RNA sequence: UAAAAAGGAAGUCACGCUAAGAGCGCCACGUCCUGUGGCAACGCAUGACUGUCCGACUUCCUGCCGG
Numbered sequence: 001u002a003a004a005a006a007g008g009a010a011g012u013c014a015c016g017c018u019a020a021g022a023g024c025g026c027c028a029c030g031u032c033c034u035g036u037g038g039c040a041a042c043g044c045a046u047g048a049c050u051g052u053c054c055g056a057c058u059u060c061c062u063g064c065c066g067g
Base pairs, nucleotide, nucleotide: 011049012048013047014046016044017043025039026038027037028036029035053067054066055065057063